[Rfam]
RNA: Small Cajal body specific RNA 4
Organism: Neotoma lepida
RNA sequence: ACUGGAGGACCAAGGCUGACUCUGAUGAAGCAAGACUUUGCUGAUACACUCCUCUUCUCCUAGACAAAGGGGUGGAGAGAGCAGCCCUCAUUGGAGAAAACCACAGGGCUGACUAUACUAUCCAAAAAUU
Number, nucleotide and partner (000 for none) at each position: 001a000002c063003u062004g060005g059006a058007g057008g056009a055010c000011c000012a000013a000014g042015g041016c040017u000018g038019a037020c000021u035022c034023u033024g000025a000026u000027g000028a000029a000030g000031c000032a000033a023034g022035a021036c000037u019038u018039u000040g016041c015042u014043g000044a000045u000046a000047c000048a000049c000050u000051c000052c000053u000054c000055u009056u008057c007058u006059c005060c004061u000062a003063g002064a000065c000066a000067a000068a000069g000070g123071g122072g121073u120074g000075g000076a000077g000078a000079g000080a114081g113082c111083a110084g109085c108086c107087c106088u105089c000090a000091u000092u103093g102094g101095a000096g000097a000098a000099a000100a000101c094102c093103a092104c000105a088106g087107g086108g085109c084110u083111g082112a000113c081114u080115a000116u000117a000118c000119u000120a073121u072122c071123c070124a000125a000126a000127a000128a000129u000130u000